A member of the RNA family "leuA-Halobacteria RNA" from Halogranum rubrum, 53 nucleotides long. It is one of the family's seed sequences. The family's RNA type in Rfam is cis-regulatory element.
[Rfam]
RNA sequence: GACAGACGAGGAUAGAGUAAGUCGCCGCGAGGCGGCUGGCUGUGAAAUUCUCC
Numbered sequence: 001g002a003c004a005g006a007c008g009a010g011g012a013u014a015g016a017g018u019a020a021g022u023c024g025c026c027g028c029g030a031g032g033c034g035g036c037u038g039g040c041u042g043u044g045a046a047a048u049u050c051u052c053c
Stems, first nucleotide, its partner, number of pairs: 020037007